Rfam assigns this 90-nucleotide RNA from Paenibacillus albilobatus to the family "c-di-GMP-I riboswitch aptamer". The literature on the family includes a 2008 paper in Science by Sudarsan et al., "Riboswitches in Eubacteria Sense the Second Messenger Cyclic Di-GMP".
[Rfam]
RNA sequence: AGACUUUUGGGGCAAACCGGUUGAAAAGCCGGGACGCAAAGGCAUGGGUCGUCGAUUUCGUUCAUGGAAUACCGAUUGCCAGCCCGCAUU
Numbered sequence: 001a002g003a004c005u006u007u008u009g010g011g012g013c014a015a016a017c018c019g020g021u022u023g024a025a026a027a028g029c030c031g032g033g034a035c036g037c038a039a040a041g042g043c044a045u046g047g048g049u050c051g052u053c054g055a056u057u058u059c060g061u062u063c064a065u066g067g068a069a070u071a072c073c074g075a076u077u078g079c080c081a082g083c084c085c086g087c088a089u090u
Base pairs, nucleotide, nucleotide: 012037013036017032018031019030020029021028022027041084042083043082045081046080047079048076049075050074055070056069057068058067059066060065

The match comes from Rfam's covariance-model search (46 bits).